[Rfam]
A member of the RNA family "Glycine riboswitch aptamer" from Insolitispirillum peregrinum, 110 nucleotides long.
RNA sequence: CCUCUGGAAAGCAGAUCGCACCUGCCCGGCAGGCGUGGUCUCACCGAAGAAGUAAGUCUGAACGGGGAUAUCCCCGUUUGCGAUGAAUCUUUCAGGUUGGGAGACAGAGG
Numbered sequence: 001c002c003u004c005u006g007g008a009a010a011g012c013a014g015a016u017c018g019c020a021c022c023u024g025c026c027c028g029g030c031a032g033g034c035g036u037g038g039u040c041u042c043a044c045c046g047a048a049g050a051a052g053u054a055a056g057u058c059u060g061a062a063c064g065g066g067g068a069u070a071u072c073c074c075c076g077u078u079u080g081c082g083a084u085g086a087a088u089c090u091u092u093c094a095g096g097u098u099g100g101g102a103g104a105c106a107g108a109g110g
Stems, first nucleotide, its partner, number of pairs: 001110006013041007043097003046093002050091003056084002
Lineage of the source: Bacteria > Pseudomonadota > Alphaproteobacteria > Rhodospirillales > Insolitispirillum. This family represents the bacterial glycine riboswitch. Glycine riboswitches usually consist of two metabolite-binding aptamers domains with similar structures in tandem. The aptamers cooperatively bind glycine to regulate the expression of downstream genes. A search with the family's covariance model found it, with a score of 38 bits.